[Rfam]
RNA sequence: AAAAAGGGUUUCUGUCCUGAGUGGCAUGAGUAAGGCAGCUCGAUUGUUCUGUGUGUGGAAUUGACAUCAGAUUUUGGAAGCAUGAUUUUCGGUAUUGACAAAUUGACAAAUUGCCCAAAUUUGAA
Dot-bracket structure: .......(((((((((......))))((.(((.(((((.....))))).))).))(((((((.......)))))))))))).................((((..(.((...)).)....))))..

U11 spliceosomal RNA: a 125-nucleotide sequence from Camelus bactrianus. The literature on the family includes a 1988 paper in Proc Natl Acad Sci U S A by Montzka and Steitz, "Additional low-abundance human small nuclear ribonucleoproteins: U11, U12, etc". Lineage of the source: Eukaryota > Teleostomi > Amniota > Boreoeutheria > Camelus. The family is grouped with related families in Rfam's "U1 clan". The family's RNA type in Rfam is spliceosomal small nuclear RNA.